[Rfam]
RNA sequence: GGCUUUCUUCGCGGCGGAGCUCGACCGCCCACACCGUUGAUCGUGGACUUCAUCGAUCACCACAGGCACGAGUUCGGAGUCGAGCCGAUCUGUCGCACGCUCACCGCUGCGGGCACGAAGAUCGCUCCG
Numbered sequence: 001g002g003c004u005u006u007c008u009u010c011g012c013g014g015c016g017g018a019g020c021u022c023g024a025c026c027g028c029c030c031a032c033a034c035c036g037u038u039g040a041u042c043g044u045g046g047a048c049u050u051c052a053u054c055g056a057u058c059a060c061c062a063c064a065g066g067c068a069c070g071a072g073u074u075c076g077g078a079g080u081c082g083a084g085c086c087g088a089u090c091u092g093u094c095g096c097a098c099g100c101u102c103a104c105c106g107c108u109g110c111g112g113g114c115a116c117g118a119a120g121a122u123c124g125c126u127c128c129g
Stems, first nucleotide, its partner, number of pairs: 013029005075129005086124002089121003
RNA: ALIL pseudoknot
Organism: Kytococcus aerolatus